Small nucleolar RNA SNORA68: a 133-nucleotide RNA from Cercocebus atys.
Rfam's curators write: U68 is a member of the H/ACA class of small nucleolar RNAs (snoRNAs) which act as guides in the the modification of uridines to pseudouridines.
It is annotated as an H/ACA-box small nucleolar RNA.
RNA sequence: GUUGCACCUAAACCUGAAGAAUCACUGUUUCUUGAAGUGAUGGUUUAAACAGAGCUGCAAACAGCAAGCGAAUCUCAUUAUCUUUGGUGGCUGUGGCCAUGCUCCUUAAAGUGAACUUAGAGGCUUACCUCCA
Numbered sequence: 001g002u003u004g005c006a007c008c009u010a011a012a013c014c015u016g017a018a019g020a021a022u023c024a025c026u027g028u029u030u031c032u033u034g035a036a037g038u039g040a041u042g043g044u045u046u047a048a049a050c051a052g053a054g055c056u057g058c059a060a061a062c063a064g065c066a067a068g069c070g071a072a073u074c075u076c077a078u079u080a081u082c083u084u085u086g087g088u089g090g091c092u093g094u095g096g097c098c099a100u101g102c103u104c105c106u107u108a109a110a111g112u113g114a115a116c117u118u119a120g121a122g123g124c125u126u127a128c129c130u131c132c133a
Base pairs, nucleotide, nucleotide: 002060003059004058005057006056008054009053020045021044022043023042024041026039027038028037029036070126071125073123074122075121076120082111083110084109085108086107087105089103090102091101